About this RNA: A member of the RNA family "mir-1 microRNA precursor family" from Ladona fulva, 76 nucleotides long. About the family: This family represents the microRNA (miRNA) mir-1 family. miRNAs are transcribed as ~70nt precursors (modelled here) and subsequently processed by the Dicer enzyme to give a ~22nt product. In this case the mature sequence comes from the 3' arm of the precursor. The extents of the hairpin precursors are not generally known and are estimated based on hairpin prediction. The products are thought to have regulatory roles through complementarity to mRNA. The involvement of Dicer in miRNA processing suggests a relationship with the phenomenon of RNA interference. miRNAs are numbered based on the sequence of the mature RNA. This family also contains the mir-206 from human, which appears to be related to mir-1. The literature on the family includes a 2001 paper in Science by Lee and Ambros, "An extensive class of small RNAs in Caenorhabditis elegans".
RNA sequence: AAAAUAAGCAAGCACUUCGUUAUUUCCACACAGAAACACACUUCUCUGUGGAAAUAACGAAGUGCUUGCUUAUUUU
Numbered sequence: 001a002a003a004a005u006a007a008g009c010a011a012g013c014a015c016u017u018c019g020u021u022a023u024u025u026c027c028a029c030a031c032a033g034a035a036a037c038a039c040a041c042u043u044c045u046c047u048g049u050g051g052a053a054a055u056a057a058c059g060a061a062g063u064g065c066u067u068g069c070u071u072a073u074u075u076u
Base pairs, nucleotide, nucleotide: 007070008069009068010067011066012065013064014063015062016061017060018059019058020057021056022055023054024053025052026051027050028049029048030047